Shown here is a 406-nucleotide part of an RNA from Caenorhabditis elegans, a member of the family "Eukaryotic large subunit ribosomal RNA".
The sequence is in the family's curated seed alignment.
RNA sequence: GACUUGUUAUUGCGAAAGUAAUCCUGCUUAGUACGAGAGGAACAGCGGGUUCAAACAUUUGGUUCAUAAACUUGAUCGACAGAUCAAUGGUCUGAAGCUACCAUUUGAGAGAUUAUAACUGAACGCCUCUAAGUUAGAAUCUCGCCUUGUCAAGGCGAAAAUUUCUUGCUUCCCGGUGUCGGGAGGCAUCUCUAUCUCGUGGCAACACGAGAGCUUAUGCCCUAUGUAUGGCCUUGGCGUCGUAGUGAAUUCUGCGACGCUUGCCAACGCCAGAUCACUCUGGUUCAAUGUCGGGGCGCUAAAUCACUUGCAUACGACUUGGUCUCUUGGUCAAGGUGUUGUAUUCAGUAGAGCAGUCCUUUUAUACUGCGAUCUGUUGAGACUAUCCUUUGAUUGAGUUUUUUGU
Numbered sequence: 001g002a003c004u005u006g007u008u009a010u011u012g013c014g015a016a017a018g019u020a021a022u023c024c025u026g027c028u029u030a031g032u033a034c035g036a037g038a039g040g041a042a043c044a045g046c047g048g049g050u051u052c053a054a055a056c057a058u059u060u061g062g063u064u065c066a067u068a069a070a071c072u073u074g075a076u077c078g079a080c081a082g083a084u085c086a087a088u089g090g091u092c093u094g095a096a097g098c099u100a101c102c103a104u105u106u107g108a109g110a111g112a113u114u115a116u117a118a119c120u121g122a123a124c125g126c127c128u129c130u131a132a133g134u135u136a137g138a139a140u141c142u143c144g145c146c147u148u149g150u151c152a153a154g155g156c157g158a159a160a161a162u163u164u165c166u167u168g169c170u171u172c173c174c175g176g177u178g179u180c181g182g183g184a185g186g187c188a189u190c191u192c193u194a195u196c197u198c199g200u201g202g203c204a205a206c207a208c209g210a211g212a213g214c215u216u217a218u219g220c221c222c223u224a225u226g227u228a229u230g231g232c233c234u235u236g237g238c239g240u241c242g243u244a245g246u247g248a249a250u251u252c253u254g255c256g257a258c259g260c261u262u263g264c265c266a267a268c269g270c271c272a273g274a275u276c277a278c279u280c281u282g283g284u285u286c287a288a289u290g291u292c293g294g295g296g297c298g299c300u301a302a303a304u305c306a307c308u309u310g311c312a313u314a315c316g317a318c319u320u321g322g323u324c325u326c327u328u329g330g331u332c333a334a335g336g337u338g339u340u341g342u343a344u345u346c347a348g349u350a351g352a353g354c355a356g357u358c359c360u361u362u363u364a365u366a367c368u369g370c371g372a373u374c375u376g377u378u379g380a381g382a383c384u385a386u387c388c389u390u391u392g393a394u395u396g397a398g399u400u401u402u403u404u405g406u
Base pairs, nucleotide, nucleotide: 006162007161008160010158011157012156013155016148017147018146021051023049024048025047026046027045028044052107053106054105055104060100061099062098067094068093070091071090072087073086074085075084076083077082109143110142111141116136117135118134119133120132171296172295173294174293175292176291301404302403303402306323307322310318328396329395330394331393332392333391334389335388336387338383339382346376347375348374350373353370354369355368356367357366
The family's consensus secondary structure is taken from published work.